[Rfam]
RNA: mir-92 microRNA precursor family
Nucleotides: 078
Base pairs, nucleotide, nucleotide: 004074005073006072009069010068011067012066013065014064016062017061018060019059020058022056023055024054027052028051029050030049031048032047033046034045
Number, partner (000 for none) and nucleotide at each position: 001000c002000u003000u004074u005073c006072u007000g008000c009069a010068c011067a012066g013065g014064u015000u016062g017061g018060g019059a020058u021000a022056a023055g024054u025000u026000c027052c028051a029050g030049u031048g032047c033046u034045g035000u036000g037000u038000g039000u040000g041000u042000c043000u044000c045034u046033g047032g048031u049030a050029c051028u052027g053000u054024g055023c056022u057000u058020a059019u060018c061017c062016c063000g064014g065013c066012c067011u068010g069009u070000u071000c072006a073005g074004a075000u076000c077000g078000g